This 54-nucleotide RNA from Anguilla anguilla belongs to the Rfam family "UnaL2 LINE 3' element". On this family, see Baba et al., RNA 2004: "Solution structure of an RNA stem-loop derived from the 3' conserved region of eel LINE UnaL2". Rfam classes the family as a cis-regulatory element. About the family: The eel long interspersed element (LINE) UnaL2 and its partner short interspersed element (SINE) share a conserved 3' tail containing a stem-loop that is critical for their retrotransposition. Pairs were carried over by alignment from the consensus structure, which is taken from published work.
[Rfam]
RNA sequence: ACCAUGAUAUUUUGUACGUCGCUUUGGAUAAAAGCGUCUGCUAAAUAAAUGUAA
Numbered sequence: 001a002c003c004a005u006g007a008u009a010u011u012u013u014g015u016a017c018g019u020c021g022c023u024u025u026g027g028a029u030a031a032a033a034g035c036g037u038c039u040g041c042u043a044a045a046u047a048a049a050u051g052u053a054a
Stems, first nucleotide, its partner, number of pairs: 013043001014041003020036006